[Rfam]
RNA sequence: AUCCAUGGCGUUCGGGCACUCCAUUUUCAUGCCCGGGCGUACAUAAAGAUAGGAGGAACAGAACACCCGCAGGCUUGCGGUGCGUCAGUGUGGAGACCUGACGUAAUGCCGCGCGUCCCAUCGCGGACGGCGGCGAGGCGCCCCAUUGCGGAGGCAGAGGCGCCAGAGCCGGAAAAUGUCA
Numbered sequence: 001a002u003c004c005a006u007g008g009c010g011u012u013c014g015g016g017c018a019c020u021c022c023a024u025u026u027u028c029a030u031g032c033c034c035g036g037g038c039g040u041a042c043a044u045a046a047a048g049a050u051a052g053g054a055g056g057a058a059c060a061g062a063a064c065a066c067c068c069g070c071a072g073g074c075u076u077g078c079g080g081u082g083c084g085u086c087a088g089u090g091u092g093g094a095g096a097c098c099u100g101a102c103g104u105a106a107u108g109c110c111g112c113g114c115g116u117c118c119c120a121u122c123g124c125g126g127a128c129g130g131c132g133g134c135g136a137g138g139c140g141c142c143c144c145a146u147u148g149c150g151g152a153g154g155c156a157g158a159g160g161c162g163c164c165a166g167a168g169c170c171g172g173a174a175a176a177u178g179u180c181a
Base pairs, nucleotide, nucleotide: 008040009039010038011037012036013035014034015033016032017031018030067080068079069078070077072170073169074168075167076166081105082104083103084102085101086100087099088098090097091096108134109133110132111131112130114129115128116127137164138163139162140161141160142159144157147156148155149154
Record summary: The family of this 181-nucleotide sequence is "malK-I RNA". Rfam's curators put it in the seed alignment. The base pairs follow the family's consensus structure, which is taken from published work.